[Rfam]
RNA sequence: UCCAUAAGUAAUAAAAGGUCCGUUUAGGUCCCUUAACUUUAUUUAAAGUAUCGGUUUGAUCCUUUCUGUUAAUUUAAUUCAAAAAAAAUGUUAAGUUUAGGGACCAAACUAAUACUAAUUAAAUAAGAUAAGGGAUCAAAAUUUAACAUGUUUUUUGAAUUAAAUUUUUUUAAUAAAGUUUAGGGGCCAAAACAGACCUUUUAUUACUUAUGGGA
Numbered sequence: 001u002c003c004a005u006a007a008g009u010a011a012u013a014a015a016a017g018g019u020c021c022g023u024u025u026a027g028g029u030c031c032c033u034u035a036a037c038u039u040u041a042u043u044u045a046a047a048g049u050a051u052c053g054g055u056u057u058g059a060u061c062c063u064u065u066c067u068g069u070u071a072a073u074u075u076a077a078u079u080c081a082a083a084a085a086a087a088a089u090g091u092u093a094a095g096u097u098u099a100g101g102g103a104c105c106a107a108a109c110u111a112a113u114a115c116u117a118a119u120u121a122a123a124u125a126a127g128a129u130a131a132g133g134g135a136u137c138a139a140a141a142u143u144u145a146a147c148a149u150g151u152u153u154u155u156u157g158a159a160u161u162a163a164a165u166u167u168u169u170u171u172a173a174u175a176a177a178g179u180u181u182a183g184g185g186g187c188c189a190a191a192a193c194a195g196a197c198c199u200u201u202u203a204u205u206a207c208u209u210a211u212g213g214g215a
Stems, first nucleotide, its partner, number of pairs: 002213007023192003027188003031184003035180009045170003
A member of the RNA family "MIR2655 microRNA precursor family" from Medicago truncatula, 215 nucleotides long.
The family has 25 seed sequences and 892 matches in Rfam 15.1.
Pairs were carried over by alignment from the consensus structure, which was predicted with RNAalifold.
The sequence is in the family's curated seed alignment.
Its family is annotated with RISC complex and miRNA-mediated post-transcriptional gene silencing in the Gene Ontology.
NCBI's taxonomy places the organism under Eukaryota, Gunneridae, Pentapetalae, Hologalegina, Medicago.